[Rfam]
RNA: XIST RNA A repeat
Organism: Octodon degus
RNA sequence: CUGCCCAUCGGGGCCGUGGAUACUUCCUUUAAUUUUU
Numbered sequence: 001c002u003g004c005c006c007a008u009c010g011g012g013g014c015c016g017u018g019g020a021u022a023c024u025u026c027c028u029u030u031a032a033u034u035u036u037u
Stems, first nucleotide, its partner, number of pairs: 003014004018025002
Dot-bracket structure: ..((((....))))...((....))............